This 74-nucleotide RNA sequence from Pleurocapsales cyanobacterium LEGE 10410 belongs to the Rfam family "tRNA". The family's RNA type in Rfam is transfer RNA. Pairs were carried over by alignment from the consensus structure, which is taken from published work. About the family: Transfer RNA (tRNA) molecules are approximately 80 nucleotides in length. Their secondary structure includes four short double-helical elements and three loops (D, anti-codon, and T loops). Further hydrogen bonds mediate the characteristic L-shaped molecular structure. tRNAs have two regions of fundamental functional importance: the anti-codon, which is responsible for specific mRNA codon recognition, and the 3' end, to which the tRNAs corresponding amino acid is attached (by aminoacyl-tRNA synthetases). tRNAs cope with the degeneracy of the genetic code in two manners: having more than one tRNA (with a specific anti-codon) for a particular amino acid; and 'wobble' base-pairing, i.e. permitting non-standard base-pairing at the 3rd anti-codon position.
Nucleotides: 074
Base pairs, nucleotide, nucleotide: 001073002072003071004070005069006068007067010026011025012024013023028044029043030042031041032040050066051065052064053063054062
Number, partner (000 for none) and nucleotide at each position: 001073c002072g003071g004070g005069a006068u007067g008000u009000g010026g011025c012024g013023c014000a015000g016000c017000u018000u019000g020000g021000u022000a023013g024012c025011g026010c027000a028044c029043u030042g031041c032040u033000u034000u035000c036000g037000g038000g039000a040032a041031g042030c043029a044028g045000g046000g047000g048000u049000c050066g051065c052064a053063g054062g055000u056000u057000c058000a059000a060000a061000u062054c063053c064052u065051g066050u067007c068006a069005u070004c071003c072002c073001g074000a